[Rfam]
RNA: Plastid-clpP 5UTR RNA
RNA sequence: AAUUCUGUUCGUAGAACAAAGAGAAGCAAAUUUAUUCUAUACUUGAUAAGUAUUAAUACGCAAUGGGU
Numbered sequence: 001a002a003u004u005c006u007g008u009u010c011g012u013a014g015a016a017c018a019a020a021g022a023g024a025a026g027c028a029a030a031u032u033u034a035u036u037c038u039a040u041a042c043u044u045g046a047u048a049a050g051u052a053u054u055a056a057u058a059c060g061c062a063a064u065g066g067g068u
Base pairs, nucleotide, nucleotide: 003021004020006018007017008016009015010014042067043066044065050059051058052057